[Rfam]
RNA sequence: UUUGAUUGGUGGUGCAAACCCAAUAAUAUUAAUUUGCAAUUUAAGAUGAGAAAUACUUUACCAUUGGUAACAAAUAUUAAGUUAUCCAUUAAGCGGAGAAAGUACUA
Numbered sequence: 001u002u003u004g005a006u007u008g009g010u011g012g013u014g015c016a017a018a019c020c021c022a023a024u025a026a027u028a029u030u031a032a033u034u035u036g037c038a039a040u041u042u043a044a045g046a047u048g049a050g051a052a053a054u055a056c057u058u059u060a061c062c063a064u065u066g067g068u069a070a071c072a073a074a075u076a077u078u079a080a081g082u083u084a085u086c087c088a089u090u091a092a093g094c095g096g097a098g099a100a101a102g103u104a105c106u107a
Stems, first nucleotide, its partner, number of pairs: 006023001010022003059098001061096002063089002066086006
Background:
The record is a 107-nucleotide sequence, which matches "Plastid-rps12 3UTR RNA" in Rfam. The literature on the family includes a 2023 paper in Plant Commun by Richter et al., "Retrograde signaling in plants: A critical review focusing on the GUN pathway and beyond". About the family: Plastid rpl20 is a non-coding RNA (ncRNA) recognised in plastids. It was found in the three prime untranslated region (3UTR) of rps12 gene, its 3UTR location sugest a role in transcript maduration. The family's RNA type in Rfam is cis-regulatory element. The sequence is in the family's curated seed alignment.